[Rfam]
RNA sequence: AGUCCUCAGCCUUACUCCAGGGACUUUUCAACCAAUAAAGUGUCUUGGCAUUGUCUGAGGAUAUAGCGAAACCAUGCUCACUUCCCUCCUCAAUAGGAUGUUUGCUUUCCUUUGAGGUCUACAGUCUGAGCAAACAUU
Numbered sequence: 001a002g003u004c005c006u007c008a009g010c011c012u013u014a015c016u017c018c019a020g021g022g023a024c025u026u027u028u029c030a031a032c033c034a035a036u037a038a039a040g041u042g043u044c045u046u047g048g049c050a051u052u053g054u055c056u057g058a059g060g061a062u063a064u065a066g067c068g069a070a071a072c073c074a075u076g077c078u079c080a081c082u083u084c085c086c087u088c089c090u091c092a093a094u095a096g097g098a099u100g101u102u103u104g105c106u107u108u109c110c111u112u113u114g115a116g117g118u119c120u121a122c123a124g125u126c127u128g129a130g131c132a133a134a135c136a137u138u
Base pairs, nucleotide, nucleotide: 003061004060005059006058007057008056009055011053017048018047019046020045021044022043023041024040025039026038027037075132076131077130079128080127088117089116090115091114092113093112095111096110097109098108
Small nucleolar RNA SNORA49: a 138-nucleotide RNA from Salvator merianae. NCBI's taxonomy places the organism under Eukaryota, Opisthokonta, Bilateria, Chordata, Salvator. From the family's description: The snoRNA ACA49 has no identified RNA target.